[Rfam]
RNA sequence: GUGAUCCCAAGAGUUCCCUUGACCACUUCAUGAUGGUUUAAUAACUUCAUUUUUUGUGCCCUCCUGAAGUGUUUGGGGGAACUCCCGGGUUCAC
Numbered sequence: 001g002u003g004a005u006c007c008c009a010a011g012a013g014u015u016c017c018c019u020u021g022a023c024c025a026c027u028u029c030a031u032g033a034u035g036g037u038u039u040a041a042u043a044a045c046u047u048c049a050u051u052u053u054u055u056g057u058g059c060c061c062u063c064c065u066g067a068a069g070u071g072u073u074u075g076g077g078g079g080a081a082c083u084c085c086c087g088g089g090u091u092c093a094c
Base pairs, nucleotide, nucleotide: 006089007088008087011084012083013082014081015080016079017078018077019076020075022074024071025070026069027068028067029066030065032063033062035060
Dot-bracket structure: .....(((..((((((((((.(.(((((((.((.(........................).)).)))))))..)))))))))))..))).....
The family of this 94-nucleotide RNA from Solanum tuberosum is "mir-395 microRNA precursor family". About the family: mir-395 was identified in both Arabidopsis thaliana and Oryza sativa computationally and was later experimentally verified. mir-395 is thought to target mRNAs coding for ATP sulphurylases. The mature sequence is excised from the 3' arm of the hairpin. A search with the family's covariance model found it, with a score of 65 bits. The organism belongs to Solanum, within Eukaryota.